[Rfam]
RNA sequence: UGUUGUCUUGCUUUAGCAGCAUGUAAAUAUUGGAGUUACUCCUUGGCCAAUGCCUCCAAUAUUGCUCGUGCUGCUGAAGCAAGAAGUCA
Numbered sequence: 001u002g003u004u005g006u007c008u009u010g011c012u013u014u015a016g017c018a019g020c021a022u023g024u025a026a027a028u029a030u031u032g033g034a035g036u037u038a039c040u041c042c043u044u045g046g047c048c049a050a051u052g053c054c055u056c057c058a059a060u061a062u063u064g065c066u067c068g069u070g071c072u073g074c075u076g077a078a079g080c081a082a083g084a085a086g087u088c089a
Stems, first nucleotide, its partner, number of pairs: 001089002004086001006084001013077011026063010
RNA: mir-15 microRNA precursor family
Organism: Danio rerio